[Rfam]
RNA: Mammalian CPEB3 ribozyme
Organism: Crocodylus porosus
RNA sequence: UUUGCAAGUUUGAGGCCAUAGCAGAAGUGUUCACAGUAUGACCCUGUCAGAUUCCAGUGAAUCUGCAAAUUUUGCU
Number, nucleotide and partner (000 for none) at each position: 001u000002u000003u000004g000005c000006a000007a000008g000009u000010u000011u000012g044013a000014g043015g042016c000017c040018a000019u000020a076021g075022c074023a073024g072025a071026a070027g039028u038029g037030u000031u000032c000033a000034c000035a000036g000037u029038a028039u027040g017041a000042c015043c014044c012045u000046g000047u000048c065049a064050g063051a062052u061053u060054c059055c000056a000057g000058u000059g054060a053061a052062u051063c050064u049065g048066c000067a000068a000069a000070u026071u025072u024073u023074g022075c021076u020